Rfam assigns this 98-nucleotide RNA from Halolactibacillus alkaliphilus to the family "BsrF".
The source organism's lineage runs through Bacteria, Bacillota, Bacilli, Bacillaceae and Halolactibacillus.

[Rfam]
RNA sequence: GCGAUGAGCUGAUUUGCAUAAGACGCACACGUCAAAAACGUUGAAUGUGGCAACGUGUGUUGCGCCGCAAAUAGGUCUGGUUAAUUAUAUUAACCAGA
Numbered sequence: 001g002c003g004a005u006g007a008g009c010u011g012a013u014u015u016g017c018a019u020a021a022g023a024c025g026c027a028c029a030c031g032u033c034a035a036a037a038a039c040g041u042u043g044a045a046u047g048u049g050g051c052a053a054c055g056u057g058u059g060u061u062g063c064g065c066c067g068c069a070a071a072u073a074g075g076u077c078u079g080g081u082u083a084a085u086u087a088u089a090u091u092a093a094c095c096a097g098a
Stems, first nucleotide, its partner, number of pairs: 014070004024064003027060004038056002041053003076098009